Background
Shown here is a 74-nucleotide sequence from Strigamia maritima, a member of the family "mir-10 microRNA precursor family". On this family, see Lee and Ambros, Science 2001: "An extensive class of small RNAs in Caenorhabditis elegans". The family has 36 seed sequences and 3,853 matches in Rfam 15.1.

[Rfam]
RNA sequence: CAACAGAAACCCGUAGAUCCGAACUUGUGUUCCAGAAGACAUCCACAAGCUCGAUUCUAUGGGUCUUAUGUUGU
Numbered sequence: 001c002a003a004c005a006g007a008a009a010c011c012c013g014u015a016g017a018u019c020c021g022a023a024c025u026u027g028u029g030u031u032c033c034a035g036a037a038g039a040c041a042u043c044c045a046c047a048a049g050c051u052c053g054a055u056u057c058u059a060u061g062g063g064u065c066u067u068a069u070g071u072u073g074u
Base pairs, nucleotide, nucleotide: 002072003071004070005069006067007066010063011062012061015058016057017056020053021052022051024049025048026047027046028045029044
Notes: The base pairs follow the family's consensus structure, which was predicted with PFOLD. The match comes from Rfam's covariance-model search (59 bits). Taxonomically the source falls in Strigamia (Eukaryota, Bilateria, Ecdysozoa, Pleurostigmophora).